RNA sequence: AUUUCUAAUUCGCUUAAUCCAAAAGGAACGGGGAAACCAGAUUGUGAGCAAAAAGUUGUUCACUCGGGGUGAAUCCUUUUUUUAUGUCUAGCUGUAGCGGCAAGCCCUCAAUGGGUUGAAGGAGACGCUUUUGCUUUUCAUAUUAAGAGGUAGGGCUAUUCUAUGGUCCGAAUCCGACAGCUAACCUCGUAAGCGUUAUGGGAGAGGAAGA
Numbered sequence: 001a002u003u004u005c006u007a008a009u010u011c012g013c014u015u016a017a018u019c020c021a022a023a024a025g026g027a028a029c030g031g032g033g034a035a036a037c038c039a040g041a042u043u044g045u046g047a048g049c050a051a052a053a054a055g056u057u058g059u060u061c062a063c064u065c066g067g068g069g070u071g072a073a074u075c076c077u078u079u080u081u082u083u084a085u086g087u088c089u090a091g092c093u094g095u096a097g098c099g100g101c102a103a104g105c106c107c108u109c110a111a112u113g114g115g116u117u118g119a120a121g122g123a124g125a126c127g128c129u130u131u132u133g134c135u136u137u138u139c140a141u142a143u144u145a146a147g148a149g150g151u152a153g154g155g156c157u158a159u160u161c162u163a164u165g166g167u168c169c170g171a172a173u174c175c176g177a178c179a180g181c182u183a184a185c186c187u188c189g190u191a192a193g194c195g196u197u198a199u200g201g202g203a204g205a206g207g208a209a210g211a
Stems, first nucleotide, its partner, number of pairs: 011195004018027003028190006038066001067175003075150006153169004

This 211-nucleotide sequence from Bacillus sp. 1NLA3E belongs to the Rfam family "c-di-AMP riboswitch aptamer (ydaO/yuaA leader)".